[Rfam]
RNA sequence: UAGAUAUAGAAGGAGAUUCUUUCAGUCCAGUCAUGGAUAGAACAAGAAGAGGGUAGAAACAUCUGCCGACUCAUCCAUCCAAACACUUCUGGUAAAAAGAAAAUAGAUUUUAUACCACAGUGGCUGUGUGAAUGAUGCGGGAGAUGUUUUCAUCUCUCUUUAUCUGUGUUUGGACUGAAGGGAGCUCCUUCUUUAUCUACA
Numbered sequence: 001u002a003g004a005u006a007u008a009g010a011a012g013g014a015g016a017u018u019c020u021u022u023c024a025g026u027c028c029a030g031u032c033a034u035g036g037a038u039a040g041a042a043c044a045a046g047a048a049g050a051g052g053g054u055a056g057a058a059a060c061a062u063c064u065g066c067c068g069a070c071u072c073a074u075c076c077a078u079c080c081a082a083a084c085a086c087u088u089c090u091g092g093u094a095a096a097a098a099g100a101a102a103a104u105a106g107a108u109u110u111u112a113u114a115c116c117a118c119a120g121u122g123g124c125u126g127u128g129u130g131a132a133u134g135a136u137g138c139g140g141g142a143g144a145u146g147u148u149u150u151c152a153u154c155u156c157u158c159u160u161u162a163u164c165u166g167u168g169u170u171u172g173g174a175c176u177g178a179a180g181g182g183a184g185c186u187c188c189u190u191c192u193u194u195a196u197c198u199a200c201a
Stems, first nucleotide, its partner, number of pairs: 013187003017183004023177007036164001063143002066140003072134003080126001
RNA: MIR159 microRNA precursor family